[Rfam]
RNA: Bag-1 internal ribosome entry site (IRES)
RNA sequence: CGAGCGGUCGAGAAGCGCCGGCCUGGCGGAACGCGGCGGCGGGCGAAGACCGCGAGGCCACGGGGAGCGGCCGGGUCUCCGGCGGCGCGCCCUUCGGCCAGGCCGGGAGUCGCGCCAGGCUGAACCCCCGGCCGACUGCAAGCCACCCGGGUCUCAGCGUAGGUCCGUACGGAGCAAGGCCAGCGGACAUGACCGAUCCACCAGGGGCUCCGCCACCGCCACCGGCGCCCGCAGGCCGCGGGUGAAGAAGAAAGUACAAGUCCUCACAGCCAGGAGCGACGAGAUGGCCAAGAACAAGGAGAUGGCCGGGAGCGAGAUGGCCCGGGGUGAGGAGAUGACCCAGAGUGAGGAGACGGCCUGGAACGAGGAGACA
Numbered sequence: 001c002g003a004g005c006g007g008u009c010g011a012g013a014a015g016c017g018c019c020g021g022c023c024u025g026g027c028g029g030a031a032c033g034c035g036g037c038g039g040c041g042g043g044c045g046a047a048g049a050c051c052g053c054g055a056g057g058c059c060a061c062g063g064g065g066a067g068c069g070g071c072c073g074g075g076u077c078u079c080c081g082g083c084g085g086c087g088c089g090c091c092c093u094u095c096g097g098c099c100a101g102g103c104c105g106g107g108a109g110u111c112g113c114g115c116c117a118g119g120c121u122g123a124a125c126c127c128c129c130g131g132c133c134g135a136c137u138g139c140a141a142g143c144c145a146c147c148c149g150g151g152u153c154u155c156a157g158c159g160u161a162g163g164u165c166c167g168u169a170c171g172g173a174g175c176a177a178g179g180c181c182a183g184c185g186g187a188c189a190u191g192a193c194c195g196a197u198c199c200a201c202c203a204g205g206g207g208c209u210c211c212g213c214c215a216c217c218g219c220c221a222c223c224g225g226c227g228c229c230c231g232c233a234g235g236c237c238g239c240g241g242g243u244g245a246a247g248a249a250g251a252a253a254g255u256a257c258a259a260g261u262c263c264u265c266a267c268a269g270c271c272a273g274g275a276g277c278g279a280c281g282a283g284a285u286g287g288c289c290a291a292g293a294a295c296a297a298g299g300a301g302a303u304g305g306c307c308g309g310g311a312g313c314g315a316g317a318u319g320g321c322c323c324g325g326g327g328u329g330a331g332g333a334g335a336u337g338a339c340c341c342a343g344a345g346u347g348a349g350g351a352g353a354c355g356g357c358c359u360g361g362a363a364c365g366a367g368g369a370g371a372c373a
Base pairs, nucleotide, nucleotide: 020104021103022102023101024100025099026098027097038093039092041090043053044052045051061082063080064079065078067076068075142354144352146350147349167188168187170185171184205230206229207228208227210225211224212223263278265276267274